[Rfam]
RNA sequence: CGCUUAUCGAGAAAGACGGAGGGAUUGGACCCGAUGAUGUCUUGGCAACCAUUCAUACUCCCUGAAAAAGGUGCCAAAUUCCGCCCCGGAAACGGGGACAGAUAAGUU
Numbered sequence: 001c002g003c004u005u006a007u008c009g010a011g012a013a014a015g016a017c018g019g020a021g022g023g024a025u026u027g028g029a030c031c032c033g034a035u036g037a038u039g040u041c042u043u044g045g046c047a048a049c050c051a052u053u054c055a056u057a058c059u060c061c062c063u064g065a066a067a068a069a070g071g072u073g074c075c076a077a078a079u080u081c082c083g084c085c086c087c088g089g090a091a092a093c094g095g096g097g098a099c100a101g102a103u104a105a106g107u108u
Stems, first nucleotide, its partner, number of pairs: 002107007013043005021032003026083004044075004049071002052066003079100001084097005

Notes
The family of this 108-nucleotide RNA from Larkinella knui is "SAM riboswitch aptamer (S box leader)". A search with the family's covariance model found it, with a score of 81 bits. NCBI's taxonomy places the organism under Bacteria, Pseudomonadati, Cytophagia, Cytophagales, Larkinella.